[Rfam]
RNA sequence: GUCCAGAAUGCGGCGGACCAGAGCCAGAAGCCUACGAGGGCCAUGGCUGCAGCCGGUCGAUAGAGUGUCGUCAUGAUCGCGAGACCGGCUGC
Numbered sequence: 001g002u003c004c005a006g007a008a009u010g011c012g013g014c015g016g017a018c019c020a021g022a023g024c025c026a027g028a029a030g031c032c033u034a035c036g037a038g039g040g041c042c043a044u045g046g047c048u049g050c051a052g053c054c055g056g057u058c059g060a061u062a063g064a065g066u067g068u069c070g071u072c073a074u075g076a077u078c079g080c081g082a083g084a085c086c087g088g089c090u091g092c
Stems, first nucleotide, its partner, number of pairs: 001018004023047004031039002049092010065080003
RNA: Rhizobiales sRNA Atu_Ti1
Organism: Rhizobium sp. AC44/96